Rfam assigns this 131-nucleotide RNA sequence from Myotis lucifugus to the family "Small nucleolar RNA SNORA9". Its family is annotated with RNA processing and nucleolus in the Gene Ontology. Taxonomically the source falls in Myotis (Eukaryota, Vertebrata, Theria, Chiroptera). The family is grouped with related families in Rfam's "SNORA9 clan". By type it is an H/ACA-box small nucleolar RNA. Rfam's curators write: ACA9 is a member of the H/ACA class of snoRNA that guide the sites of modification of uridines to pseudouridines.

[Rfam]
RNA sequence: CUGCAAGCCUCCAGUGUGCUUGGGUCUGGGGUGAUCCUAUGCAUCCCUACAGUACUUGCGAGAACAGUUGGAAACAGUUUGAGGCCUUGCCUGCUGCAUCCGGAGCAAGGUAAUAGAAGUUUCAGAAAGUU
Numbered sequence: 001c002u003g004c005a006a007g008c009c010u011c012c013a014g015u016g017u018g019c020u021u022g023g024g025u026c027u028g029g030g031g032u033g034a035u036c037c038u039a040u041g042c043a044u045c046c047c048u049a050c051a052g053u054a055c056u057u058g059c060g061a062g063a064a065c066a067g068u069u070g071g072a073a074a075c076a077g078u079u080u081g082a083g084g085c086c087u088u089g090c091c092u093g094c095u096g097c098a099u100c101c102g103g104a105g106c107a108a109g110g111u112a113a114u115a116g117a118a119g120u121u122u123c124a125g126a127a128a129g130u131u
Stems, first nucleotide, its partner, number of pairs: 003059005017043003022037005071123004085110006092102002